[Rfam]
RNA sequence: CGCCAGUUUCUUCGGGGCGGAGCUCGACCGCCAACACAAGAAGUAGUCGCCUUCGUCGACGCCAACCGCGACGACGUCGUGGGCGGCAAGAAGCUCGGAGUCGAGUCCAUCUGCAGCACCCUGUCCAAGGCAGGGCUGCAGAUGGCUCCG
Numbered sequence: 001c002g003c004c005a006g007u008u009u010c011u012u013c014g015g016g017g018c019g020g021a022g023c024u025c026g027a028c029c030g031c032c033a034a035c036a037c038a039a040g041a042a043g044u045a046g047u048c049g050c051c052u053u054c055g056u057c058g059a060c061g062c063c064a065a066c067c068g069c070g071a072c073g074a075c076g077u078c079g080u081g082g083g084c085g086g087c088a089a090g091a092a093g094c095u096c097g098g099a100g101u102c103g104a105g106u107c108c109a110u111c112u113g114c115a116g117c118a119c120c121c122u123g124u125c126c127a128a129g130g131c132a133g134g135g136c137u138g139c140a141g142a143u144g145g146c147u148c149c150g
Base pairs, nucleotide, nucleotide: 016032017031018030019029020028096150097149098148099147100146107145108144110142111141112140113139114138115137116136
The record is a 150-nucleotide RNA sequence from Mumia flava, which matches "ALIL pseudoknot" in Rfam. Rfam links the family to the GO term positive regulation of translational frameshifting. It scores 51 bits against the family's covariance model. A reference for the family is Mazauric et al. (2008), "Apical loop-internal loop RNA pseudoknots: a new type of stimulator of -1 translational frameshifting in bacteria", J Biol Chem. The family's RNA type in Rfam is cis-regulatory element. The organism belongs to Mumia, within Bacteria.